[Rfam]
RNA sequence: GGAAGUAUAGCUCAGUUGGUUAGAGCACACCCCUGAUAAGGGUGAGGUCGGUGGUUCAAGUCCACUUAUUUCCA
Numbered sequence: 001g002g003a004a005g006u007a008u009a010g011c012u013c014a015g016u017u018g019g020u021u022a023g024a025g026c027a028c029a030c031c032c033c034u035g036a037u038a039a040g041g042g043u044g045a046g047g048u049c050g051g052u053g054g055u056u057c058a059a060g061u062c063c064a065c066u067u068a069u070u071u072c073c074a
Stems, first nucleotide, its partner, number of pairs: 001073007010026004028044005050066005